Small nucleolar RNA snR161: a 164-nucleotide sequence from Kluyveromyces lactis. The literature on the family includes a 2004 paper in Nucleic Acids Res by Schattner et al., "Genome-wide searching for pseudouridylation guide snoRNAs: analysis of the Saccharomyces cerevisiae genome". Pairs were carried over by alignment from the consensus structure, which was predicted with WAR. The family is grouped with related families in Rfam's "SNORA44 clan". Lineage of the source: Eukaryota > Dikarya > saccharomyceta > Saccharomycetaceae > Kluyveromyces.

[Rfam]
RNA sequence: CAAGUAAAAAUCAACCAGUAUAUUUGGCUGGCCAAGGCAUCUUCAACUCUUGGCUAGUCUCUCUAAGCUGGGAGAAUAAAUCUUAUCAGUCUUGAACAAUUUAAGUUCUGUUAUCCGAUCUUCAAAAAUUAUAUCGAUAUAACCCUAUCGUUGUUCAAACAAAU
Numbered sequence: 001c002a003a004g005u006a007a008a009a010a011u012c013a014a015c016c017a018g019u020a021u022a023u024u025u026g027g028c029u030g031g032c033c034a035a036g037g038c039a040u041c042u043u044c045a046a047c048u049c050u051u052g053g054c055u056a057g058u059c060u061c062u063c064u065a066a067g068c069u070g071g072g073a074g075a076a077u078a079a080a081u082c083u084u085a086u087c088a089g090u091c092u093u094g095a096a097c098a099a100u101u102u103a104a105g106u107u108c109u110g111u112u113a114u115c116c117g118a119u120c121u122u123c124a125a126a127a128a129u130u131a132u133a134u135c136g137a138u139a140u141a142a143c144c145c146u147a148u149c150g151u152u153g154u155u156c157a158a159a160c161a162a163a164u
Stems, first nucleotide, its partner, number of pairs: 015071005027058010093157005099151002110143005116136004124130001